RNA sequence: CCGGCUCCGGUUCACGUCCUACGCAUCCGCGCGGGGACGACCCGGCGGCA
Numbered sequence: 001c002c003g004g005c006u007c008c009g010g011u012u013c014a015c016g017u018c019c020u021a022c023g024c025a026u027c028c029g030c031g032c033g034g035g036g037a038c039g040a041c042c043c044g045g046c047g048g049c050a
Base pairs, nucleotide, nucleotide: 004049005048007045008044009043010042015039016038017037018036019035020034022031023030024029
The family of this 50-nucleotide RNA sequence is "L31-Actinobacteria ribosomal protein leader".
Rfam classes the family as a cis-regulatory leader.
It is one of the family's seed sequences.